[Rfam]
RNA sequence: AAGAGCCUUAGCUUAAGUCAAUAAAGACUGAGAAGGUUGACUCAAGAAUAAA
Numbered sequence: 001a002a003g004a005g006c007c008u009u010a011g012c013u014u015a016a017g018u019c020a021a022u023a024a025a026g027a028c029u030g031a032g033a034a035g036g037u038u039g040a041c042u043c044a045a046g047a048a049u050a051a052a
Stems, first nucleotide, its partner, number of pairs: 007046002016042007
The record is a 52-nucleotide RNA from Gossypium laxum, which matches "Plastid-rpl16 group II-D1 intron" in Rfam. On this family, see Richter et al., Plant Commun 2023: "Retrograde signaling in plants: A critical review focusing on the GUN pathway and beyond". Rfam links the family to the GO term Group II intron splicing. The match comes from Rfam's covariance-model search (50 bits).